[Rfam]
RNA sequence: ACGGAAAGUAGAGGUCGCAACGGCCAUGAGUACAGGAGGGAGCAGGCAUGCUUUGAACUUCUGGAAAGGGGCAGUUGCCGAAGGGUGCAUCCGGCGGGGUGACAUCCUGGGAUCAGGUCGAAGAGUCCUGGUACUGUCAUUACGAUGAUGCGCUACAUAUUGG
Numbered sequence: 001a002c003g004g005a006a007a008g009u010a011g012a013g014g015u016c017g018c019a020a021c022g023g024c025c026a027u028g029a030g031u032a033c034a035g036g037a038g039g040g041a042g043c044a045g046g047c048a049u050g051c052u053u054u055g056a057a058c059u060u061c062u063g064g065a066a067a068g069g070g071g072c073a074g075u076u077g078c079c080g081a082a083g084g085g086u087g088c089a090u091c092c093g094g095c096g097g098g099g100u101g102a103c104a105u106c107c108u109g110g111g112a113u114c115a116g117g118u119c120g121a122a123g124a125g126u127c128c129u130g131g132u133a134c135u136g137u138c139a140u141u142a143c144g145a146u147g148a149u150g151c152g153c154u155a156c157a158u159a160u161u162g163g
Stems, first nucleotide, its partner, number of pairs: 006158001008156004017078005023072003033063006082108006088101005109135002112132006119125001137148004
RNA: Lysine riboswitch aptamer